[Rfam]
RNA sequence: CCCUUCUUUUAAAGCACCCUGCUAACAUUGUGAAGGUGAAGCCUCUGGGCCUGGCUCUUGCAGACAUGUAAGCAUGGGUACACCAAGGAAGGAUAUAAAAGGCAAAGGGUUGCAAACGAGGCUAGGACGGACCUCUUUCCUAAUGUCCAGUGUCCUUUUCCUCAAGGCUCUAUGCUACAGGU
Numbered sequence: 001c002c003c004u005u006c007u008u009u010u011a012a013a014g015c016a017c018c019c020u021g022c023u024a025a026c027a028u029u030g031u032g033a034a035g036g037u038g039a040a041g042c043c044u045c046u047g048g049g050c051c052u053g054g055c056u057c058u059u060g061c062a063g064a065c066a067u068g069u070a071a072g073c074a075u076g077g078g079u080a081c082a083c084c085a086a087g088g089a090a091g092g093a094u095a096u097a098a099a100a101g102g103c104a105a106a107g108g109g110u111u112g113c114a115a116a117c118g119a120g121g122c123u124a125g126g127a128c129g130g131a132c133c134u135c136u137u138u139c140c141u142a143a144u145g146u147c148c149a150g151u152g153u154c155c156u157u158u159u160c161c162u163c164a165a166g167g168c169u170c171u172a173u174g175c176u177a178c179a180g181g182u
Stems, first nucleotide, its partner, number of pairs: 017078002020074004027067002033058001036055002039052001041050003101176004106171004124153001126151001129148003

The record is a 182-nucleotide RNA from Esox lucius, which matches "Small nucleolar RNA SNORA81" in Rfam. A reference for the family is Gu et al. (2005), "A novel experimental approach for systematic identification of box H/ACA snoRNAs from eukaryotes", Nucleic Acids Res. The family's RNA type in Rfam is H/ACA-box small nucleolar RNA. The base pairs follow the family's consensus structure, which was predicted with WAR. A search with the family's covariance model found it, with a score of 86 bits.